[Rfam]
Background: Rfam assigns this 164-nucleotide sequence from Paenibacillus catalpae to the family "FMN riboswitch aptamer (RFN element)". On this family, see Vitreschak et al., Nucleic Acids Res 2002: "Regulation of riboflavin biosynthesis and transport genes in bacteria by transcriptional and translational attenuation". Rfam links the family to the GO term FMN binding. It scores 108 bits against the family's covariance model. From the family's description: The RFN element is a highly conserved domain that is found frequently in the 5'-untranslated regions of prokaryotic mRNAs that encode for flavin mononucleotide (FMN) biosynthesis and transport proteins.

RNA sequence: AAGGAUCUUCGGGGCAGGGUGAAAUUCCUGACCGGCGGUAAACGCUAUUCUCUGCCUUGCAGAUGAAAGCAAAGCCCGCGACUCCCUGAGCUGACUAGCAGCAAGGGGACUGACUUGGUGAAACUCCAAGGCCGACGGUAUAGUCCGGAUGAUAGAAGAUCACU
Number, nucleotide and partner (000 for none) at each position: 001a000002a000003g000004g161005a160006u159007c158008u157009u156010c155011g000012g000013g000014g000015c000016a000017g029018g028019g027020u000021g000022a000023a000024a000025u000026u000027c019028c018029u017030g000031a144032c143033c134034g133035g079036c078037g077038g076039u000040a000041a000042a000043c000044g000045c000046u000047a000048u000049u000050c000051u000052c000053u000054g000055c000056c000057u000058u000059g000060c000061a000062g000063a000064u000065g000066a000067a000068a000069g000070c000071a000072a000073a000074g132075c131076c038077c037078g036079c035080g000081a000082c000083u109084c108085c107086c106087u105088g000089a000090g000091c000092u000093g000094a000095c000096u000097a000098g000099c000100a000101g000102c000103a000104a000105g087106g086107g085108g084109a083110c000111u000112g000113a000114c130115u129116u128117g127118g126119u000120g000121a000122a000123a000124c000125u000126c118127c117128a116129a115130g114131g075132c074133c034134g033135a000136c147137g146138g145139u000140a000141u000142a000143g032144u031145c138146c137147g136148g000149a000150u000151g000152a000153u000154a000155g010156a009157a008158g007159a006160u005161c004162a000163c000164u000